[Rfam]
RNA sequence: CGGUCCUUGCAUCACCCGGCGCCGGGUGACCGGAUGGACGACAUCCGAGCACUUGUGGGGUUGUCCGAUUAAUCGGCAUCACCCCUGACACCGGAGGU
Dot-bracket structure: ........................((((..((((((.....))))))..))))...(((((.((((((....)))).)).))))).............
Numbered sequence: 001c002g003g004u005c006c007u008u009g010c011a012u013c014a015c016c017c018g019g020c021g022c023c024g025g026g027u028g029a030c031c032g033g034a035u036g037g038a039c040g041a042c043a044u045c046c047g048a049g050c051a052c053u054u055g056u057g058g059g060g061u062u063g064u065c066c067g068a069u070u071a072a073u074c075g076g077c078a079u080c081a082c083c084c085c086u087g088a089c090a091c092c093g094g095a096g097g098u
Stems, first nucleotide, its partner, number of pairs: 025053004031047006057085005063079002065076004